Overview: The record is a 70-nucleotide sequence from Sinocyclocheilus anshuiensis, which matches "Small nucleolar RNA SNORD99" in Rfam. By type it is a C/D-box small nucleolar RNA. For this family Rfam cites "Purified box C/D snoRNPs are able to reproduce site-specific 2'-O-methylation of target RNA in vitro" (Galardi et al., Mol Cell Biol, 2002). A search with the family's covariance model found it, with a score of 68 bits. The source organism's lineage runs through Eukaryota, Teleostomi, Teleostei, Cyprinoidei and Sinocyclocheilus.
RNA sequence: CCUGAUCAAGGAUGACAGACUUCAUGGUGACUGCUGGAUGAAACUUGCGGAUAUGGGACUGAGAUCAGUG
Numbered sequence: 001c002c003u004g005a006u007c008a009a010g011g012a013u014g015a016c017a018g019a020c021u022u023c024a025u026g027g028u029g030a031c032u033g034c035u036g037g038a039u040g041a042a043a044c045u046u047g048c049g050g051a052u053a054u055g056g057g058a059c060u061g062a063g064a065u066c067a068g069u070g
Stems, first nucleotide, its partner, number of pairs: 002068004